[Rfam]
RNA: mir-571 microRNA precursor family
Organism: Chlorocebus sabaeus
RNA sequence: AGUAACACCAGGCUUGUGUGCCAUUUCCUUGUCUGUAGCCAUGUCUAUGGGCCCUUGAGUUAGCCACCUGGGUGAGGGCCUGUU
Numbered sequence: 001a002g003u004a005a006c007a008c009c010a011g012g013c014u015u016g017u018g019u020g021c022c023a024u025u026u027c028c029u030u031g032u033c034u035g036u037a038g039c040c041a042u043g044u045c046u047a048u049g050g051g052c053c054c055u056u057g058a059g060u061u062a063g064c065c066a067c068c069u070g071g072g073u074g075a076g077g078g079c080c081u082g083u084u
Stems, first nucleotide, its partner, number of pairs: 001084004008077002012073004016068001017066002020064002023061001025059003031052008